[Rfam]
RNA sequence: AGCUAUGCGUUGAGCACAAAGUGAAUUAUUCUUUCGCUUUUUACUAAAGAAUACCGUGUGCUCGUUGCUAUAAGUAGCAUAAUUCUAUUUUUGUAGGGGCGCACUUUUAUGGGUGCCU
Numbered sequence: 001a002g003c004u005a006u007g008c009g010u011u012g013a014g015c016a017c018a019a020a021g022u023g024a025a026u027u028a029u030u031c032u033u034u035c036g037c038u039u040u041u042u043a044c045u046a047a048a049g050a051a052u053a054c055c056g057u058g059u060g061c062u063c064g065u066u067g068c069u070a071u072a073a074g075u076a077g078c079a080u081a082a083u084u085c086u087a088u089u090u091u092u093g094u095a096g097g098g099g100c101g102c103a104c105u106u107u108u109a110u111g112g113g114u115g116c117c118u
Stems, first nucleotide, its partner, number of pairs: 003077004008067002011064008027053008095118001098117005
RNA: U5 spliceosomal RNA